Source information
c-di-AMP riboswitch aptamer (ydaO/yuaA leader): a 169-nucleotide RNA sequence from Streptomyces wuyuanensis. It scores 77 bits against the family's covariance model. From the family's description: This family represents a conserved RNA structure found upstream of the ydaO and yuaA genes in Bacillus subtilis and related genes in other bacteria.
[Rfam]
RNA sequence: CGGGCAGCCGCGCCGAAUCCGUGCUCCGUACAGAGGAGUUCGGAACCGGGGACCCAAUCAAAAGCACAACCGGGGUGAAUCGGGCCUGGUUUCACCGGACCCGUAGGGCAAACCUUCCGUUCCGUCCGAACCCGACAGCUAACCCGGUAGGCGUUCCACGGAAGGAGAU
Numbered sequence: 001c002g003g004g005c006a007g008c009c010g011c012g013c014c015g016a017a018u019c020c021g022u023g024c025u026c027c028g029u030a031c032a033g034a035g036g037a038g039u040u041c042g043g044a045a046c047c048g049g050g051g052a053c054c055c056a057a058u059c060a061a062a063a064g065c066a067c068a069a070c071c072g073g074g075g076u077g078a079a080u081c082g083g084g085c086c087u088g089g090u091u092u093c094a095c096c097g098g099a100c101c102c103g104u105a106g107g108g109c110a111a112a113c114c115u116u117c118c119g120u121u122c123c124g125u126c127c128g129a130a131c132c133c134g135a136c137a138g139c140u141a142a143c144c145c146g147g148u149a150g151g152c153g154u155u156c157c158a159c160g161g162a163a164g165g166a167g168a169u
Stems, first nucleotide, its partner, number of pairs: 011153004018044003045148006055072001073133003081103004106127004